[Rfam]
RNA sequence: CGGCGGGAGCCCCGGGGGGCUAGCCCUCCCCUGUAACCGCAAACGGGCUCAGGGCGGGGGGUGUCAACCCUCAGGGGCGCCUGUAAGCUGCAUGCCGGGGCGAGAAGGCCCGCCCAUGAAGCCUGGGCCCACGGGACGCCUCGCUCCGCGCUAACCCCCUCGUAGGAGGGGCGAAGCGCGGCAAGGCUGAAACGGGUUAGGCCCGGGAGGGAGCGGCCCUAAGGCCGGCGGGGCGUGUUCGUGGAAGCCUGGGGUGAGGAAGGAGCCCUCUCGCCCUGGUAUGCACGCCCAGGCCACCCUGGGGGGACGCCGCCG
Numbered sequence: 001c002g003g004c005g006g007g008a009g010c011c012c013c014g015g016g017g018g019g020c021u022a023g024c025c026c027u028c029c030c031c032u033g034u035a036a037c038c039g040c041a042a043a044c045g046g047g048c049u050c051a052g053g054g055c056g057g058g059g060g061g062u063g064u065c066a067a068c069c070c071u072c073a074g075g076g077g078c079g080c081c082u083g084u085a086a087g088c089u090g091c092a093u094g095c096c097g098g099g100g101c102g103a104g105a106a107g108g109c110c111c112g113c114c115c116a117u118g119a120a121g122c123c124u125g126g127g128c129c130c131a132c133g134g135g136a137c138g139c140c141u142c143g144c145u146c147c148g149c150g151c152u153a154a155c156c157c158c159c160u161c162g163u164a165g166g167a168g169g170g171g172c173g174a175a176g177c178g179c180g181g182c183a184a185g186g187c188u189g190a191a192a193c194g195g196g197u198u199a200g201g202c203c204c205g206g207g208a209g210g211g212a213g214c215g216g217c218c219c220u221a222a223g224g225c226c227g228g229c230g231g232g233g234c235g236u237g238u239u240c241g242u243g244g245a246a247g248c249c250u251g252g253g254g255u256g257a258g259g260a261a262g263g264a265g266c267c268c269u270c271u272c273g274c275c276c277u278g279g280u281a282u283g284c285a286c287g288c289c290c291a292g293g294c295c296a297c298c299c300u301g302g303g304g305g306g307a308c309g310c311c312g313c314c315g
Stems, first nucleotide, its partner, number of pairs: 001312005009062005014032006037057004068305009079294004083289001089285011101273005107267003110263002114259002121255004126250002129244007136236008146181007156171006185226004194219004202211003

Archaeal signal recognition particle RNA: a 315-nucleotide RNA sequence from Infirmifilum uzonense. The family's consensus secondary structure is taken from published work. The literature on the family includes a 2002 paper in Curr Opin Struct Biol by Wild et al., "Towards the structure of the mammalian signal recognition particle". Rfam classes the family as a non-coding RNA gene. Gene Ontology terms of the family: signal recognition particle, plasma membrane targeting and SRP-dependent cotranslational protein targeting to membrane, signal sequence recognition.